The record is a 128-nucleotide sequence from Actinomyces graevenitzii, which matches "FMN riboswitch aptamer (RFN element)" in Rfam. Lineage of the source: Bacteria > Bacillati > Actinomycetota > Actinomyces > Actinomyces graevenitzii. The base pairs follow the family's consensus structure, which is taken from published work.
RNA sequence: AACGUGCUCCGGGGUCGGUGAAAUUCCGAGCCGGCGGUUAUAGUCCGCGACCCACCGGUAUCUACUGGUGGCUGAGCUGGUGAAAUUCCAGCACCGACGGUUAAAGUCCGGAUGGGAGGAGGCACGCG
Numbered sequence: 001a002a003c004g005u006g007c008u009c010c011g012g013g014g015u016c017g018g019u020g021a022a023a024u025u026c027c028g029a030g031c032c033g034g035c036g037g038u039u040a041u042a043g044u045c046c047g048c049g050a051c052c053c054a055c056c057g058g059u060a061u062c063u064a065c066u067g068g069u070g071g072c073u074g075a076g077c078u079g080g081u082g083a084a085a086u087u088c089c090a091g092c093a094c095c096g097a098c099g100g101u102u103a104a105a106g107u108c109c110g111g112a113u114g115g116g117a118g119g120a121g122g123c124a125c126g127c128g
Stems, first nucleotide, its partner, number of pairs: 003126005008120003016028003030107002032096002034048004043094002052071002076092005098110003